The family of this 278-nucleotide RNA from Sphenodon punctatus is "RNase MRP". Rfam links the family to the GO terms ribonuclease MRP activity, rRNA processing and ribonuclease MRP complex. The family is grouped with related families in Rfam's "RNaseP clan".
RNA sequence: AGGCGUUUCAAAGACCUGCUAUCUAGGCUACAUGCUGAGGAUGUUUGUUCCUCCUGGGCUCCGUGCCCGCCUAGGGGAAAGUCCCCGGACCCCGGGCAGAGAGUGCCACAUGCUCCUUGAGCGUGUAGUAUCCUCUCUCGCAAGCUCACAAUCUCCCGCUAAGAAGCCCUUAGGGCCGAGCGAGUGUGCGCGGGAGGGGCUGCCUGUCACCCUCAUAGUAACGCAGGUAGUGCAGUCCGCUGCUGCACCAACACAACGGGGCUCACUCUGAGAACGCC
Numbered sequence: 001a002g003g004c005g006u007u008u009c010a011a012a013g014a015c016c017u018g019c020u021a022u023c024u025a026g027g028c029u030a031c032a033u034g035c036u037g038a039g040g041a042u043g044u045u046u047g048u049u050c051c052u053c054c055u056g057g058g059c060u061c062c063g064u065g066c067c068c069g070c071c072u073a074g075g076g077g078a079a080a081g082u083c084c085c086c087g088g089a090c091c092c093c094g095g096g097c098a099g100a101g102a103g104u105g106c107c108a109c110a111u112g113c114u115c116c117u118u119g120a121g122c123g124u125g126u127a128g129u130a131u132c133c134u135c136u137c138u139c140g141c142a143a144g145c146u147c148a149c150a151a152u153c154u155c156c157c158g159c160u161a162a163g164a165a166g167c168c169c170u171u172a173g174g175g176c177c178g179a180g181c182g183a184g185u186g187u188g189c190g191c192g193g194g195a196g197g198g199g200c201u202g203c204c205u206g207u208c209a210c211c212c213u214c215a216u217a218g219u220a221a222c223g224c225a226g227g228u229a230g231u232g233c234a235g236u237c238c239g240c241u242g243c244u245g246c247a248c249c250a251a252c253a254c255a256a257c258g259g260g261g262c263u264c265a266c267u268c269u270g271a272g273a274a275c276g277c278c
Base pairs, nucleotide, nucleotide: 002278003277004276005275006274007273008272011269014228015227016226017225018224019223022075023074024073025072026071027070028069037053038052039051040050041049080263081262083261084260085259086258095107096106097105098104108126109125110124111123112122113121114120115119128200129199135196136195137194138193139192140191144189145188147186157182158181159180166176167175168174169173230248231247232246233245234244235243
The family's RNA type in Rfam is ribozyme.